[Rfam]
RNA sequence: UAGGUUUGUCCUAAGUCAAACUUCUUCAAGUUUGACCAAGUUUAUAGAAAAUUAUACUAAUAUCUAAAAUAUCAAAUGAGUCCAGUAUGACUAUAUAUAUAAUGACAGAUUUAAUAAAACUAAUUUAGAGUUCUAGAUGUCGGUAGAAUUUCCUGUAAGCUUGGUCAAACUUGAAUAAGUUUGACUUAGGACAAAACUAG
Numbered sequence: 001u002a003g004g005u006u007u008g009u010c011c012u013a014a015g016u017c018a019a020a021c022u023u024c025u026u027c028a029a030g031u032u033u034g035a036c037c038a039a040g041u042u043u044a045u046a047g048a049a050a051a052u053u054a055u056a057c058u059a060a061u062a063u064c065u066a067a068a069a070u071a072u073c074a075a076a077u078g079a080g081u082c083c084a085g086u087a088u089g090a091c092u093a094u095a096u097a098u099a100u101a102a103u104g105a106c107a108g109a110u111u112u113a114a115u116a117a118a119a120c121u122a123a124u125u126u127a128g129a130g131u132u133c134u135a136g137a138u139g140u141c142g143g144u145a146g147a148a149u150u151u152c153c154u155g156u157a158a159g160c161u162u163g164g165u166c167a168a169a170c171u172u173g174a175a176u177a178a179g180u181u182u183g184a185c186u187u188a189g190g191a192c193a194a195a196a197c198u199a200g
Stems, first nucleotide, its partner, number of pairs: 005195005011189013025175002031169005045155003049151004055145003060140007068132001072128001074126004
Shown here is a 200-nucleotide sequence from Brachypodium distachyon, a member of the family "MIR1435 microRNA precursor family". The family's consensus secondary structure was predicted with RNAalifold. The match comes from Rfam's covariance-model search (103 bits).